[Rfam]
RNA sequence: UUGCCCAUCGGGGCUGUGGAUACCUGUUCAGAUUUUU
Numbered sequence: 001u002u003g004c005c006c007a008u009c010g011g012g013g014c015u016g017u018g019g020a021u022a023c024c025u026g027u028u029c030a031g032a033u034u035u036u037u
Base pairs, nucleotide, nucleotide: 003014004013005012006011017026018025019024